[Rfam]
RNA sequence: UAACUAAAUAAGCAAACCUAAAGAAAUUUAGUGACGCAAAACUAAAGGGGCUAAAGUUAUAGACCAAGCCAGCCAGUUGCCAAG
Number, nucleotide and partner (000 for none) at each position: 001u000002a000003a000004c000005u000006a000007a000008a000009u000010a000011a000012g037013c036014a000015a000016a000017c000018c031019u030020a029021a028022a027023g000024a000025a000026a000027u022028u021029u020030a019031g018032u000033g000034a000035c000036g013037c012038a000039a000040a078041a077042c076043u075044a000045a000046a000047g074048g073049g070050g069051c068052u000053a000054a000055a000056g064057u063058u062059a000060u000061a000062g058063a057064c056065c000066a000067a000068g051069c050070c049071a000072g000073c048074c047075a043076g042077u041078u040079g000080c000081c000082a000083a000084g000
RNA: c-di-GMP-I riboswitch aptamer
Organism: Asaccharospora irregularis